[Rfam]
RNA sequence: GGCGCUAAACAGGCUCGUGAAAUAAGCGCAACGGACCCGGGGGCAGUACCCGGCGCCUCCACCAUUUCUGGCCGUUUCACCGAACAGAUCGGUGCCUGACGGCGGUUUAUGGGGGCGAAAUAGGAUCGACGUGCGUGGUAAAGAUGGGUUUGGUUCCCGGCAUGGUACCGCCGUUAUCGGGCCAUACUCUAGUUGCGAAUGACAACUACGGUGAGGCACGCCUCGCUGCUUAA
Numbered sequence: 001g002g003c004g005c006u007a008a009a010c011a012g013g014c015u016c017g018u019g020a021a022a023u024a025a026g027c028g029c030a031a032c033g034g035a036c037c038c039g040g041g042g043g044c045a046g047u048a049c050c051c052g053g054c055g056c057c058u059c060c061a062c063c064a065u066u067u068c069u070g071g072c073c074g075u076u077u078c079a080c081c082g083a084a085c086a087g088a089u090c091g092g093u094g095c096c097u098g099a100c101g102g103c104g105g106u107u108u109a110u111g112g113g114g115g116c117g118a119a120a121u122a123g124g125a126u127c128g129a130c131g132u133g134c135g136u137g138g139u140a141a142a143g144a145u146g147g148g149u150u151u152g153g154u155u156c157c158c159g160g161c162a163u164g165g166u167a168c169c170g171c172c173g174u175u176a177u178c179g180g181g182c183c184a185u186a187c188u189c190u191a192g193u194u195g196c197g198a199a200u201g202a203c204a205a206c207u208a209c210g211g212u213g214a215g216g217c218a219c220g221c222c223u224c225g226c227u228g229c230u231u232a233a
Stems, first nucleotide, its partner, number of pairs: 001157002004154002015147004027135003031132003037053005054117007158173004

Rfam assigns this 233-nucleotide RNA from Pelagibius litoralis to the family "permuted transfer-messenger RNA". Gene Ontology term of the family: RNA catabolic process. It is annotated as a non-coding RNA gene. The family's consensus secondary structure is taken from published work. NCBI's taxonomy places the organism under Bacteria, Pseudomonadota, Alphaproteobacteria, Rhodospirillales, Pelagibius.